Source information:
The record is a 58-nucleotide RNA from Sphingobium algorifonticola, which matches "nhaA-I RNA" in Rfam.
[Rfam]
RNA sequence: GGGUGUCGGCAUUCUCGUGAAAGCAGGCAGGUUGUUCACGCUGGUCGGGCCGCCAGCG
Numbered sequence: 001g002g003g004u005g006u007c008g009g010c011a012u013u014c015u016c017g018u019g020a021a022a023g024c025a026g027g028c029a030g031g032u033u034g035u036u037c038a039c040g041c042u043g044g045u046c047g048g049g050c051c052g053c054c055a056g057c058g
Stems, first nucleotide, its partner, number of pairs: 005028003009024002012021001039058007
The match comes from Rfam's covariance-model search (47 bits). It is annotated as a riboswitch.